Group II catalytic intron D1-D4-1: a 74-nucleotide RNA from Sporosarcina luteola.

[Rfam]
RNA sequence: CAAACUUGGCAGUGAUGACAGGUUGAACUGUAAGAAGUCAGCAGAGGCCAUAGUAGUCCGCUAGGAUGAAGGGC
Numbered sequence: 001c002a003a004a005c006u007u008g009g010c011a012g013u014g015a016u017g018a019c020a021g022g023u024u025g026a027a028c029u030g031u032a033a034g035a036a037g038u039c040a041g042c043a044g045a046g047g048c049c050a051u052a053g054u055a056g057u058c059c060g061c062u063a064g065g066a067u068g069a070a071g072g073g074c
Stems, first nucleotide, its partner, number of pairs: 001025002004023005010017002038045002047074003056067004
Gene Ontology term of the family: Group II intron splicing. NCBI's taxonomy places the organism under Bacteria, Bacillati, Bacillota, Caryophanales, Sporosarcina. Rfam describes the family as follows. Group II introns are found in rRNA, tRNA and mRNA of organelles in fungi, plants and protists, and also in mRNA in bacteria. It scores 68 bits against the family's covariance model.